The family of this 74-nucleotide sequence from Yamadazyma tenuis is "Small nucleolar RNA SNORD27". Rfam classes the family as a C/D-box small nucleolar RNA.

[Rfam]
RNA sequence: GCUAAAAGAUGAUUUUCGAAAAUUGACAAGCAUAUGUCUGAUUCUGCAAGAAGAUACAUUUUCAGUCUGAUAGU
Numbered sequence: 001g002c003u004a005a006a007a008g009a010u011g012a013u014u015u016u017c018g019a020a021a022a023u024u025g026a027c028a029a030g031c032a033u034a035u036g037u038c039u040g041a042u043u044c045u046g047c048a049a050g051a052a053g054a055u056a057c058a059u060u061u062u063c064a065g066u067c068u069g070a071u072a073g074u
Base pairs, nucleotide, nucleotide: 001074002073003072004071